[Rfam]
Rfam assigns this 191-nucleotide RNA from Panicum virgatum to the family "Small nucleolar RNA Z112". The family's RNA type in Rfam is C/D-box small nucleolar RNA. The literature on the family includes a 2002 paper in Nucleic Acids Res by Liang et al., "A novel gene organization: intronic snoRNA gene clusters from Oryza sativa". Its Rfam clan is "SNORD49 clan". The match comes from Rfam's covariance-model search (128 bits).
RNA sequence: GUUUCUGUAAUGCUAGGUCAAGACCUACCGACAGGAAGUGCCGUUUGACACUGUUAUCCAGCAGCUGCUUCUCUCAUCUGCAGGUGUCCAUACUGAAACCAUAACCUUUGUGGUUUGGUCUGUGGUGGAGUUCUCAUAUGCAGAUGUUUGAUUCAGAUGUGGUGUGAUUUAAAUUGGGUCUCUUGAGGGAU
Numbered sequence: 001g002u003u004u005c006u007g008u009a010a011u012g013c014u015a016g017g018u019c020a021a022g023a024c025c026u027a028c029c030g031a032c033a034g035g036a037a038g039u040g041c042c043g044u045u046u047g048a049c050a051c052u053g054u055u056a057u058c059c060a061g062c063a064g065c066u067g068c069u070u071c072u073c074u075c076a077u078c079u080g081c082a083g084g085u086g087u088c089c090a091u092a093c094u095g096a097a098a099c100c101a102u103a104a105c106c107u108u109u110g111u112g113g114u115u116u117g118g119u120c121u122g123u124g125g126u127g128g129a130g131u132u133c134u135c136a137u138a139u140g141c142a143g144a145u146g147u148u149u150g151a152u153u154c155a156g157a158u159g160u161g162g163u164g165u166g167a168u169u170u171a172a173a174u175u176g177g178g179u180c181u182c183u184u185g186a187g188g189g190a191u
Stems, first nucleotide, its partner, number of pairs: 001191005078143005084137003087129005098119004103115004